Background
Rfam assigns this 76-nucleotide RNA sequence from Prolemur simus to the family "mir-320 microRNA precursor family". The base pairs follow the family's consensus structure, which was predicted with RNAalifold. Rfam 15.1 lists 659 matches to the family in 129 species. For this family Rfam cites "Many novel mammalian microRNA candidates identified by extensive cloning and RAKE analysis" (Berezikov et al., Genome Res, 2006).
RNA sequence: CACUCACGUGGCCUUCUCUUCCCAGUUCUUCGUGAAGUUGGGAAAAGCUGAGUUGAGAGGGUGAAAAAAAAAAGAA
Numbered sequence: 001c002a003c004u005c006a007c008g009u010g011g012c013c014u015u016c017u018c019u020u021c022c023c024a025g026u027u028c029u030u031c032g033u034g035a036a037g038u039u040g041g042g043a044a045a046a047g048c049u050g051a052g053u054u055g056a057g058a059g060g061g062u063g064a065a066a067a068a069a070a071a072a073a074g075a076a
Stems, first nucleotide, its partner, number of pairs: 014059005021052001023050003029044003033040002